[Rfam]
RNA sequence: CGCAGGGCGUUGCCCUGCGCUGGUGUAUCGCGCCCUUUCAGGGCU
Number, nucleotide and partner (000 for none) at each position: 001c019002g018003c017004a016005g015006g014007g013008c012009g000010u000011u000012g008013c007014c006015c005016u004017g003018c002019g001020c000021u000022g000023g000024u000025g000026u000027a000028u000029c000030g000031c000032g044033c043034c042035c041036u040037u000038u000039c000040a036041g035042g034043g033044c032045u000
The record is a 45-nucleotide RNA from Candidatus Moduliflexus flocculans, which matches "Acido-Lenti-1 RNA" in Rfam.
It is annotated as a small RNA.
Rfam 15.1 lists 2,607 matches to the family in 171 species.
Pairs were carried over by alignment from the consensus structure, which is taken from published work.